A member of the RNA family "TPP riboswitch aptamer (THI element)" from Priestia taiwanensis, 112 nucleotides long. Taxonomically the source falls in Priestia (Bacteria, Bacillati, Bacilli, Caryophanales). On this family, see Warner et al., Chem Biol 2014: "Validating fragment-based drug discovery for biological RNAs: lead fragments bind and remodel the TPP riboswitch specifically". Vitamin B(1) in its active form thiamin pyrophosphate (TPP) is an essential coenzyme that is synthesised by coupling of pyrimidine and thiazole moieties in bacteria.

RNA sequence: UACAUAUGCUAGGGGGGCUGGUUGAGCCAGCUGAGAUAAAGACCGUAUUUGUCUUUGACCCUUAUAACCUGAUCUAGAUGAUGCUAGCGUAGGGAAGCUGUACACGUGAAAC
Numbered sequence: 001u002a003c004a005u006a007u008g009c010u011a012g013g014g015g016g017g018c019u020g021g022u023u024g025a026g027c028c029a030g031c032u033g034a035g036a037u038a039a040a041g042a043c044c045g046u047a048u049u050u051g052u053c054u055u056u057g058a059c060c061c062u063u064a065u066a067a068c069c070u071g072a073u074c075u076a077g078a079u080g081a082u083g084c085u086a087g088c089g090u091a092g093g094g095a096a097g098c099u100g101u102a103c104a105c106g107u108g109a110a111a112c
Base pairs, nucleotide, nucleotide: 008098009097010096011062012061013060014059016056017031018030019029020028021027039055040054041053042052068093069092070091071090074087075086076085077084